[Rfam]
RNA sequence: UGUUUGCUGUGAUGAAUCACAAGGACGGUAUCUGAGCGAGGCGGCUCUUGGAAAAGGGCCACCUUCCUUGAUUACACACCCUAAACUGAUCAUAAAUUCUGAGCAAACG
Numbered sequence: 001u002g003u004u005u006g007c008u009g010u011g012a013u014g015a016a017u018c019a020c021a022a023g024g025a026c027g028g029u030a031u032c033u034g035a036g037c038g039a040g041g042c043g044g045c046u047c048u049u050g051g052a053a054a055a056g057g058g059c060c061a062c063c064u065u066c067c068u069u070g071a072u073u074a075c076a077c078a079c080c081c082u083a084a085a086c087u088g089a090u091c092a093u094a095a096a097u098u099c100u101g102a103g104c105a106a107a108c109g
Stems, first nucleotide, its partner, number of pairs: 001109007036067001038065004

A member of the RNA family "Small nucleolar RNA Z118/Z121/Z120" from Triticum urartu, 109 nucleotides long. The organism belongs to Triticum, within Eukaryota. By type it is a C/D-box small nucleolar RNA. Gene Ontology terms of the family: RNA processing and nucleolus.